[Rfam]
RNA sequence: CGCCUGCACCCCGAAGCCCGGAUUCUGUGGAGGCUGCGCUGCUUCUUUUCUCAAAUUCCGUAGCACCACAUGAUUCGGCUUCGUGGUGCAGGAC
Numbered sequence: 001c002g003c004c005u006g007c008a009c010c011c012c013g014a015a016g017c018c019c020g021g022a023u024u025c026u027g028u029g030g031a032g033g034c035u036g037c038g039c040u041g042c043u044u045c046u047u048u049u050c051u052c053a054a055a056u057u058c059c060g061u062a063g064c065a066c067c068a069c070a071u072g073a074u075u076c077g078g079c080u081u082c083g084u085g086g087u088g089c090a091g092g093a094c
Base pairs, nucleotide, nucleotide: 003092004091005090006089007088008087009086010085012083013082014081015080016079017078018077020076021075022074023073024072026070027069028068029067033064034063035062036061037060038059
This 94-nucleotide RNA sequence from Drosophila rhopaloa belongs to the Rfam family "mir-995 microRNA precursor family".
The base pairs follow the family's consensus structure, which was predicted with RNAalifold.
Rfam links the family to the GO terms RISC complex and miRNA-mediated post-transcriptional gene silencing.
The organism belongs to Sophophora, within Eukaryota.